The family of this 79-nucleotide sequence from Trichogramma brassicae is "mir-219 microRNA precursor family". The family's consensus secondary structure was predicted with RNAalifold. Lineage of the source: Eukaryota > Altocrustacea > Neoptera > Hymenoptera > Trichogramma.
RNA sequence: UUGGGCUAUGAUUGUCCAAACGCAAUUCUUGUUUACUGUAUAAAAAUAUCAAGAAUUGUGAGGGGACAUCAGCGCUCGG
Dot-bracket structure: .(((((..((((.((((...(((((((((((..................)))))))))))...))))))))..))))).
On this family, see Lim et al., Science 2003: "Vertebrate microRNA genes". The match comes from Rfam's covariance-model search (72 bits). Rfam 15.1 lists 1,318 matches to the family in 774 species. Gene Ontology terms of the family: RISC complex and miRNA-mediated post-transcriptional gene silencing.